[Rfam]
RNA: chrB-b RNA
RNA sequence: UCGGGAAAUGCAGACUCCCGGCCAGACGGUGUCCCGUCCAAGCUCUGC
Numbered sequence: 001u002c003g004g005g006a007a008a009u010g011c012a013g014a015c016u017c018c019c020g021g022c023c024a025g026a027c028g029g030u031g032u033c034c035c036g037u038c039c040a041a042g043c044u045c046u047g048c
Stems, first nucleotide, its partner, number of pairs: 001021006010048005025038005